[Rfam]
RNA sequence: CGCUCAUGCAGAGGACACGAGGGAUCUGGCCCGAAGACUGUCCGGCAACCUGUACUGAUUACAGAACAAGGUGCUAAGCCAGCCGCUUUUGCGGAAACCAUGAGGC
Numbered sequence: 001c002g003c004u005c006a007u008g009c010a011g012a013g014g015a016c017a018c019g020a021g022g023g024a025u026c027u028g029g030c031c032c033g034a035a036g037a038c039u040g041u042c043c044g045g046c047a048a049c050c051u052g053u054a055c056u057g058a059u060u061a062c063a064g065a066a067c068a069a070g071g072u073g074c075u076a077a078g079c080c081a082g083c084c085g086c087u088u089u090u091g092c093g094g095a096a097a098c099c100a101u102g103a104g105g106c
Stems, first nucleotide, its partner, number of pairs: 003104006013043005021032003026082004044075004049071002053065001078098001083094004

Rfam assigns this 106-nucleotide RNA from Halodesulfovibrio spirochaetisodalis to the family "SAM riboswitch aptamer (S box leader)". Rfam describes the family as follows. The SAM riboswitch is found upstream of a number of genes which code for proteins involved in methionine or cysteine biosynthesis in Gram-positive bacteria. Taxonomically the source falls in Halodesulfovibrio (Bacteria, Thermodesulfobacteriota, Desulfovibrionia, Desulfovibrionales). It scores 58 bits against the family's covariance model. The base pairs follow the family's consensus structure, which is taken from published work.